[Rfam]
RNA sequence: GAGCUGUGAUGAUAAGUUGAUAUUGUGAUUGGGAGGGUCCUUCACAAACGUCUGAUUCAAAGAUGACAUUUAAACACAUCUGAGCUC
Numbered sequence: 001g002a003g004c005u006g007u008g009a010u011g012a013u014a015a016g017u018u019g020a021u022a023u024u025g026u027g028a029u030u031g032g033g034a035g036g037g038u039c040c041u042u043c044a045c046a047a048a049c050g051u052c053u054g055a056u057u058c059a060a061a062g063a064u065g066a067c068a069u070u071u072a073a074a075c076a077c078a079u080c081u082g083a084g085c086u087c
Stems, first nucleotide, its partner, number of pairs: 001087004
Dot-bracket structure: ((((...............................................................................))))
A member of the RNA family "small nucleolar RNA snoR114" from Ananas comosus, 87 nucleotides long.
Rfam 15.1 lists 1,645 matches to the family in 183 species.
A reference for the family is Chen and Wu (2009), "Mining small RNA sequencing data: a new approach to identify small nucleolar RNAs in Arabidopsis", Nucleic Acids Res.
The family's RNA type in Rfam is C/D-box small nucleolar RNA.
Gene Ontology terms of the family: nucleolus and RNA processing.